[Rfam]
RNA sequence: CACGAGAACGGCAAACCGAGUGCAAGCUCGGGACGCAAAGCCACGGGCCCCUUCGGGGGUAGCCGAGCUACCGAAC
Numbered sequence: 001c002a003c004g005a006g007a008a009c010g011g012c013a014a015a016c017c018g019a020g021u022g023c024a025a026g027c028u029c030g031g032g033a034c035g036c037a038a039a040g041c042c043a044c045g046g047g048c049c050c051c052u053u054c055g056g057g058g059g060u061a062g063c064c065g066a067g068c069u070a071c072c073g074a075a076c
Stems, first nucleotide, its partner, number of pairs: 003073002011036002016031006034062001039069003044065003047060003
A member of the RNA family "c-di-GMP-I-GGC riboswitch aptamer" from Saltatorellus ferox, 76 nucleotides long. Pairs were carried over by alignment from the consensus structure, which is taken from published work. It scores 63 bits against the family's covariance model.